This 152-nucleotide RNA sequence from Arachis hypogaea belongs to the Rfam family "small nucleolar RNA snoR137". Rfam 15.1 lists 808 matches to the family in 221 species. The literature on the family includes a 2009 paper in Nucleic Acids Res by Chen and Wu, "Mining small RNA sequencing data: a new approach to identify small nucleolar RNAs in Arabidopsis". Pairs were carried over by alignment from the consensus structure, which was predicted with RNAalifold.
RNA sequence: GUUGCUUCUUCUCGUGAAAAUCCUUUUUUAUAUUGAAGUUGGAGAUGUUCUUGUUUCUGAAGCAUAUAUCAAAUUUCUUAAUUAACUAGUUUUAAACAGCGUGCUUUAAUCUUUUUUGAGCUACAUUAUGCUACCUGUCUAUUAGUACAAUC
Numbered sequence: 001g002u003u004g005c006u007u008c009u010u011c012u013c014g015u016g017a018a019a020a021u022c023c024u025u026u027u028u029u030a031u032a033u034u035g036a037a038g039u040u041g042g043a044g045a046u047g048u049u050c051u052u053g054u055u056u057c058u059g060a061a062g063c064a065u066a067u068a069u070c071a072a073a074u075u076u077c078u079u080a081a082u083u084a085a086c087u088a089g090u091u092u093u094a095a096a097c098a099g100c101g102u103g104c105u106u107u108a109a110u111c112u113u114u115u116u117u118g119a120g121c122u123a124c125a126u127u128a129u130g131c132u133a134c135c136u137g138u139c140u141a142u143u144a145g146u147a148c149a150a151u152c
Base pairs, nucleotide, nucleotide: 003064004063005062006061007060008059017051019049020048021047023044024043025042026041085146086145087144088143089142090141098132099131100130102128103124